[Rfam]
RNA sequence: UUUCAAUGAUGAGUUAUAAAAUUUUUGACAAGCAUAUGUCUGAAAUAAAAUUUGAUGAUAUUUAAUAUCUGAGAAA
Numbered sequence: 001u002u003u004c005a006a007u008g009a010u011g012a013g014u015u016a017u018a019a020a021a022u023u024u025u026u027g028a029c030a031a032g033c034a035u036a037u038g039u040c041u042g043a044a045a046u047a048a049a050a051u052u053u054g055a056u057g058a059u060a061u062u063u064a065a066u067a068u069c070u071g072a073g074a075a076a
Base pairs, nucleotide, nucleotide: 001076002075003074004073